[Rfam]
RNA sequence: CGACACCGCGCGAGAGAGACCCCGCAACGGGGCGCCGACGGGGCAAUACUCCCCAGUAACCUCUCAGGCACCAUGGACCGCGUGGAGGAG
Numbered sequence: 001c002g003a004c005a006c007c008g009c010g011c012g013a014g015a016g017a018g019a020c021c022c023c024g025c026a027a028c029g030g031g032g033c034g035c036c037g038a039c040g041g042g043g044c045a046a047u048a049c050u051c052c053c054c055a056g057u058a059a060c061c062u063c064u065c066a067g068g069c070a071c072c073a074u075g076g077a078c079c080g081c082g083u084g085g086a087g088g089a090g
Stems, first nucleotide, its partner, number of pairs: 006085007020032004034069003037065002041063003047056001
RNA: Glycine riboswitch aptamer
Organism: Nocardiopsis dassonvillei